RNA sequence: GCCGGUCCUCGGUAGUGGCCCCCAGGGGGGAAGAGAGCCCCUGGGUGCUUCGAUCGAAGACCGGC
Number, nucleotide and partner (000 for none) at each position: 001g065002c064003c063004g062005g061006u060007c059008c000009u057010c056011g055012g054013u053014a000015g000016u000017g049018g048019c047020c000021c045022c044023c043024a042025g041026g040027g039028g038029g000030g000031a000032a000033g000034a000035g000036a000037g000038c028039c027040c026041c025042u024043g023044g022045g021046u000047g019048c018049u017050u000051c000052g000053a013054u012055c011056g010057a009058a000059g007060a006061c005062c004063g003064g002065c001

Rfam assigns this 65-nucleotide RNA from Streptomyces seoulensis to the family "Actino-pnp RNA".
Pairs were carried over by alignment from the consensus structure, which is taken from published work.